Shown here is a 74-nucleotide RNA from Platysteira castanea, a member of the family "mir-460 microRNA precursor family". On this family, see Xu et al., FEBS Lett 2006: "Identification of microRNAs from different tissues of chicken embryo and adult chicken". The family has 21 seed sequences and 1,029 matches in Rfam 15.1. The match comes from Rfam's covariance-model search (55 bits).
RNA sequence: CUUUGCAGGCCCUGCAUUGCACACUCUGUGUGUGAGCUGCAGUGCACAGCGCAGACAAUGUGGAGGCUGCACAG
Numbered sequence: 001c002u003u004u005g006c007a008g009g010c011c012c013u014g015c016a017u018u019g020c021a022c023a024c025u026c027u028g029u030g031u032g033u034g035a036g037c038u039g040c041a042g043u044g045c046a047c048a049g050c051g052c053a054g055a056c057a058a059u060g061u062g063g064a065g066g067c068u069g070c071a072c073a074g
Stems, first nucleotide, its partner, number of pairs: 012063002015060005024051001026049006